[Rfam]
RNA: Saccharopolyspora sRNA 350
Organism: Catellatospora sp. TT07R-123
RNA sequence: UUGACGGUGGCCUCCCAGGUGGCGCCGGUCUGGGUCAGCGACUGCUCGCCGAAGUACUCGCCGUCGGCCAGCACCCCGAGCACGAUCUUGUCGCCGUACUUGCCGGUGCCGAUCCGGUUGACCUUGCCGUGGGCGAGGAGGAACACCUGGUCGGCGGGCUCGCCGCUGGAGACGAUGACGUCGCCGGGGGAGAACUCGUGCUGGCGGAACCGGUCGGCCAGGGCCUCCAGGACCAUCGGGUCGUCGAAGUCGCGCAGCAGCGGCAGCUCGCACAGCUCCGGCGGCACCACGCGGACCUGGCCGCCGGCGGUCGUGAAGCUGAGCCGGCCGUCGCCGACGGCGUAGCUCAGCCGCCGGUUGACCCGGUACGUACCGCCCUUGACCUGCGUCCACGGGAGCAUGCGCAGCAGCCACCGGGAGGAGAUCUCCUGCAUCUGCGGCGCGGACUUGGUCGUCGUCGCGAGGUUGCGGGCUGCGGCUGUCGCGAGUGACUGCUGCCG
Numbered sequence: 001u002u003g004a005c006g007g008u009g010g011c012c013u014c015c016c017a018g019g020u021g022g023c024g025c026c027g028g029u030c031u032g033g034g035u036c037a038g039c040g041a042c043u044g045c046u047c048g049c050c051g052a053a054g055u056a057c058u059c060g061c062c063g064u065c066g067g068c069c070a071g072c073a074c075c076c077c078g079a080g081c082a083c084g085a086u087c088u089u090g091u092c093g094c095c096g097u098a099c100u101u102g103c104c105g106g107u108g109c110c111g112a113u114c115c116g117g118u119u120g121a122c123c124u125u126g127c128c129g130u131g132g133g134c135g136a137g138g139a140g141g142a143a144c145a146c147c148u149g150g151u152c153g154g155c156g157g158g159c160u161c162g163c164c165g166c167u168g169g170a171g172a173c174g175a176u177g178a179c180g181u182c183g184c185c186g187g188g189g190g191a192g193a194a195c196u197c198g199u200g201c202u203g204g205c206g207g208a209a210c211c212g213g214u215c216g217g218c219c220a221g222g223g224c225c226u227c228c229a230g231g232a233c234c235a236u237c238g239g240g241u242c243g244u245c246g247a248a249g250u251c252g253c254g255c256a257g258c259a260g261c262g263g264c265a266g267c268u269c270g271c272a273c274a275g276c277u278c279c280g281g282c283g284g285c286a287c288c289a290c291g292c293g294g295a296c297c298u299g300g301c302c303g304c305c306g307g308c309g310g311u312c313g314u315g316a317a318g319c320u321g322a323g324c325c326g327g328c329c330g331u332c333g334c335c336g337a338c339g340g341c342g343u344a345g346c347u348c349a350g351c352c353g354c355c356g357g358u359u360g361a362c363c364c365g366g367u368a369c370g371u372a373c374c375g376c377c378c379u380u381g382a383c384c385u386g387c388g389u390c391c392a393c394g395g396g397a398g399c400a401u402g403c404g405c406a407g408c409a410g411c412c413a414c415c416g417g418g419a420g421g422a423g424a425u426c427u428c429c430u431g432c433a434u435c436u437g438c439g440g441c442g443c444g445g446a447c448u449u450g451g452u453c454g455u456c457g458u459c460g461c462g463a464g465g466u467u468g469c470g471g472g473c474u475g476c477g478g479c480u481g482u483c484g485c486g487a488g489u490g491a492c493u494g495c496u497g498c499c500g
Stems, first nucleotide, its partner, number of pairs: 006390004015381001018328001021325002026321004031316001039313006047303002050300001052298001054233002057230002060227001063224002065111004077102004082097003086093001118221003122217002127212001129210002133205002136202002139199001141197001143196001155187001157185003160178002164174002236294002240290002243287002245284001249282004254278001256277003260271003329342004353377001355375003361371002391431002394428004399423001401421001403418001405416001407415001437476004443470002446467001447465003451461002477499002480494001481492001483490002